[Rfam]
RNA sequence: AUGCAGUGAUGAUUUCUUAAAUAGUGGUUUCAACUUACUGAAUUGUUGAAUGAAGAUGUGAAUUUCCUUGGCUGUGUCUGAGCAU
Numbered sequence: 001a002u003g004c005a006g007u008g009a010u011g012a013u014u015u016c017u018u019a020a021a022u023a024g025u026g027g028u029u030u031c032a033a034c035u036u037a038c039u040g041a042a043u044u045g046u047u048g049a050a051u052g053a054a055g056a057u058g059u060g061a062a063u064u065u066c067c068u069u070g071g072c073u074g075u076g077u078c079u080g081a082g083c084a085u
Base pairs, nucleotide, nucleotide: 001085002084003083004082